[Rfam]
RNA sequence: AGUGAUUCACAAGCGCCAGAGCUUUUGUGAUGGAUGGGGGAUGCGGCUCUGAGAAGUGCCGUGGAGUAUCAUUCAUACAGAAGCUGACGAGGUGAGGGUGUUCGAAGUCUUCGGCGGGGACCUUCCGGUAUAUAGCAAGCCAACCGUAAGCCGUAACGCAAAACGAUCGGGCGACUGAUCUGACAAACGUGCGGCAGGCUGCUGC
Numbered sequence: 001a002g003u004g005a006u007u008c009a010c011a012a013g014c015g016c017c018a019g020a021g022c023u024u025u026u027g028u029g030a031u032g033g034a035u036g037g038g039g040g041a042u043g044c045g046g047c048u049c050u051g052a053g054a055a056g057u058g059c060c061g062u063g064g065a066g067u068a069u070c071a072u073u074c075a076u077a078c079a080g081a082a083g084c085u086g087a088c089g090a091g092g093u094g095a096g097g098g099u100g101u102u103c104g105a106a107g108u109c110u111u112c113g114g115c116g117g118g119g120a121c122c123u124u125c126c127g128g129u130a131u132a133u134a135g136c137a138a139g140c141c142a143a144c145c146g147u148a149a150g151c152c153g154u155a156a157c158g159c160a161a162a163a164c165g166a167u168c169g170g171g172c173g174a175c176u177g178a179u180c181u182g183a184c185a186a187a188c189g190u191g192c193g194g195c196a197g198g199c200u201g202c203u204g205c
Base pairs, nucleotide, nucleotide: 020085021084022083023082024081025080026079027078029076094125095124096123097122098121102114103113104112105111126146127145128144129143150195151194152193153192154191155190165180166179167178168177169176170175
A member of the RNA family "glmS glucosamine-6-phosphate activated ribozyme aptamer" from Paenibacillus paeoniae, 205 nucleotides long. The match comes from Rfam's covariance-model search (70 bits). Taxonomically the source falls in Paenibacillus (Bacteria, Bacillota, Bacilli, Paenibacillaceae). Pairs were carried over by alignment from the consensus structure, which is taken from published work.